[Rfam]
Background:
This 81-nucleotide RNA sequence from Acipenser ruthenus belongs to the Rfam family "mir-26 microRNA precursor family". The literature on the family includes a 2001 paper in Science by Lagos-Quintana et al., "Identification of novel genes coding for small expressed RNAs". Taxonomically the source falls in Acipenser (Eukaryota, Opisthokonta, Acipenseroidei, Acipenserini). The base pairs follow the family's consensus structure, which was predicted with RNAalifold.
RNA sequence: CUGGUUCCUGUACCAAGUCGUCCAGAAUAGGCUUUGCUGGAUAGGACCAGCCUAUCCUGGAUUACUUGAAACAGGCACCAG
Numbered sequence: 001c002u003g004g005u006u007c008c009u010g011u012a013c014c015a016a017g018u019c020g021u022c023c024a025g026a027a028u029a030g031g032c033u034u035u036g037c038u039g040g041a042u043a044g045g046a047c048c049a050g051c052c053u054a055u056c057c058u059g060g061a062u063u064a065c066u067u068g069a070a071a072c073a074g075g076c077a078c079c080a081g
Stems, first nucleotide, its partner, number of pairs: 002080004007075005014068005020062003024058002027055007